A member of the RNA family "Proteo-phage-1 RNA", 82 nucleotides long. The sequence is in the family's curated seed alignment.
RNA sequence: CCCUCGCGGCAGGGGCCGGAUAGUCCGGAUAGUGCCGCCGAGGUGAGCCGGGGGUGCCUCGUCCGAAAAAGCCCCGGCAGGG
Numbered sequence: 001c002c003c004u005c006g007c008g009g010c011a012g013g014g015g016c017c018g019g020a021u022a023g024u025c026c027g028g029a030u031a032g033u034g035c036c037g038c039c040g041a042g043g044u045g046a047g048c049c050g051g052g053g054g055u056g057c058c059u060c061g062u063c064c065g066a067a068a069a070a071g072c073c074c075c076g077g078c079a080g081g082g
Base pairs, nucleotide, nucleotide: 001015002014003013004012007037008036009035010034011033017027018026019025039061040060041059042058043057047078048077049076050075051074